Rfam assigns this 58-nucleotide RNA sequence from Streptomyces sp. Ru87 to the family "msiK RNA". The base pairs follow the family's consensus structure, which is taken from published work. Rfam classes the family as a cis-regulatory element.
RNA sequence: CCACAUCACUCCUUUACUCGGAUCGUCCGGCACGUUCCUGCCGGUGAAGGGAUCAAUC
Numbered sequence: 001c002c003a004c005a006u007c008a009c010u011c012c013u014u015u016a017c018u019c020g021g022a023u024c025g026u027c028c029g030g031c032a033c034g035u036u037c038c039u040g041c042c043g044g045u046g047a048a049g050g051g052a053u054c055a056a057u058c
Base pairs, nucleotide, nucleotide: 010051011050012049013048014047015046016045027044028043029042030041031040032039